[Rfam]
RNA sequence: GAUGGUUGUCACGAAUAGGGAAUAUUCAAGCUCAGCAAACAAAAUUACUUGUCUAUUUACAUUGACAUAUUGAUUUCUACAGACUAUCCCACUGGACCAAGCCACC
Numbered sequence: 001g002a003u004g005g006u007u008g009u010c011a012c013g014a015a016u017a018g019g020g021a022a023u024a025u026u027c028a029a030g031c032u033c034a035g036c037a038a039a040c041a042a043a044a045u046u047a048c049u050u051g052u053c054u055a056u057u058u059a060c061a062u063u064g065a066c067a068u069a070u071u072g073a074u075u076u077c078u079a080c081a082g083a084c085u086a087u088c089c090c091a092c093u094g095g096a097c098c099a100a101g102c103c104a105c106c
Stems, first nucleotide, its partner, number of pairs: 001106001003104004
Shown here is a 106-nucleotide RNA from Sorghum bicolor, a member of the family "Small nucleolar RNA Z107/R87". The family's consensus secondary structure was predicted with RNAfold. NCBI's taxonomy places the organism under Eukaryota, Viridiplantae, Streptophytina, Poaceae, Sorghum. The literature on the family includes a 2001 paper in J Mol Biol by Barneche et al., "Identification of 66 box C/D snoRNAs in Arabidopsis thaliana: extensive gene duplications generated multiple isoforms predicting new ribosomal RNA 2'-O-methylation sites".